RNA sequence: GGUCAGUGAUGUGAUGUAAAAGGUCUGAUGCCCAAGUUUCCUCCAGCUGCCCUUUGGCUCCCAGAAGCCUCUGCACUAUUCCCAGCAUGCUCUAGAUGUGUAGUGUUGGGUGCAGGAGUUUCUGACAGAUGGGAUGGCAGCUUAACCUGUGUGUCCAAGAGAUCAAGGGCUCACAGUGACAAUGGACAUCCAACACAGCCAAUCACCAAGGAGUGUCAGGGUCUGGUGUGUGAAUAGGCACUUGAUCUCAAGUUUUCAAGCUGAGACC
Dot-bracket structure: ((((..............................((.((..((..((..........(((((((((((............((((((((.(.........)..)))))))).......)))))))......(.((((.(.........((((.((((..........)))).)))).........).)))))..................)))).......))..)).................)).))................))))
Numbered sequence: 001g002g003u004c005a006g007u008g009a010u011g012u013g014a015u016g017u018a019a020a021a022g023g024u025c026u027g028a029u030g031c032c033c034a035a036g037u038u039u040c041c042u043c044c045a046g047c048u049g050c051c052c053u054u055u056g057g058c059u060c061c062c063a064g065a066a067g068c069c070u071c072u073g074c075a076c077u078a079u080u081c082c083c084a085g086c087a088u089g090c091u092c093u094a095g096a097u098g099u100g101u102a103g104u105g106u107u108g109g110g111u112g113c114a115g116g117a118g119u120u121u122c123u124g125a126c127a128g129a130u131g132g133g134a135u136g137g138c139a140g141c142u143u144a145a146c147c148u149g150u151g152u153g154u155c156c157a158a159g160a161g162a163u164c165a166a167g168g169g170c171u172c173a174c175a176g177u178g179a180c181a182a183u184g185g186a187c188a189u190c191c192a193a194c195a196c197a198g199c200c201a202a203u204c205a206c207c208a209a210g211g212a213g214u215g216u217c218a219g220g221g222u223c224u225g226g227u228g229u230g231u232g233a234a235u236a237g238g239c240a241c242u243u244g245a246u247c248u249c250a251a252g253u254u255u256u257c258a259a260g261c262u263g264a265g266a267c268c
Stems, first nucleotide, its partner, number of pairs: 001268004035248002038245002042226002046222002058213004062124007081110008090100001131191001133190004138185001148175004153170004

The family of this 268-nucleotide sequence from Megalops atlanticus is "Small Cajal body specific RNA 6". Rfam describes the family as follows. U88 is small Cajal body specific RNA (scaRNA). scaRNAs are a novel class of small nuclear RNAs which localise to the Cajal bodies. The literature on the family includes a 2002 paper in EMBO J by Darzacq et al., "Cajal body-specific small nuclear RNAs: a novel class of 2'-O-methylation and pseudouridylation guide RNAs". Taxonomically the source falls in Megalops (Eukaryota, Vertebrata, Gnathostomata, Actinopteri). Gene Ontology terms of the family: nucleolus and RNA processing.